[Rfam]
RNA: Fungal signal recognition particle RNA
Organism: Periconia digitata
RNA sequence: UACCUGUAAUGGGUCUUCAUUGGAAGGUCAAUCGUGAUCCACGCAUGCUUUCCAUUUUCUGCUUGAAAUGAGCCCAGUUCGAGUCCGGUGGUGCUCAUUCCACUCGCUUGGGUAACCAGCGAAUUGCUGGGAGGGCCUAAGCCAUGACUUAAUCACCAGGGGAGCAAUCCUGCAAUGAAAGUUUUGUCAUCGGAUGGCGAAAUUGGAUUACUCGUUUUCGGCUUGGCAAGCAAUGUGUGGGAUGACUGUUACCGACCUUUAUU
Numbered sequence: 001u002a003c004c005u006g007u008a009a010u011g012g013g014u015c016u017u018c019a020u021u022g023g024a025a026g027g028u029c030a031a032u033c034g035u036g037a038u039c040c041a042c043g044c045a046u047g048c049u050u051u052c053c054a055u056u057u058u059c060u061g062c063u064u065g066a067a068a069u070g071a072g073c074c075c076a077g078u079u080c081g082a083g084u085c086c087g088g089u090g091g092u093g094c095u096c097a098u099u100c101c102a103c104u105c106g107c108u109u110g111g112g113u114a115a116c117c118a119g120c121g122a123a124u125u126g127c128u129g130g131g132a133g134g135g136c137c138u139a140a141g142c143c144a145u146g147a148c149u150u151a152a153u154c155a156c157c158a159g160g161g162g163a164g165c166a167a168u169c170c171u172g173c174a175a176u177g178a179a180a181g182u183u184u185u186g187u188c189a190u191c192g193g194a195u196g197g198c199g200a201a202a203u204u205g206g207a208u209u210a211c212u213c214g215u216u217u218u219c220g221g222c223u224u225g226g227c228a229a230g231c232a233a234u235g236u237g238u239g240g241g242a243u244g245a246c247u248g249u250u251a252c253c254g255a256c257c258u259u260u261a262u263u
Base pairs, nucleotide, nucleotide: 002014003013004012019260022257023256026253027252028251030249034246035245038242039241040240041238042237043236044235045234046233047231048230049229050228052226053225061222062221063220065218066217067216068215069214070213071212072211074206075205076204077203078202079200080199081198083195084194085193086192087191088190089189090188091187093136095134096133099131100130102124104122105121106120107119108118110117111116137141143186144185146183147182148181149180153178154177155176161170162169163168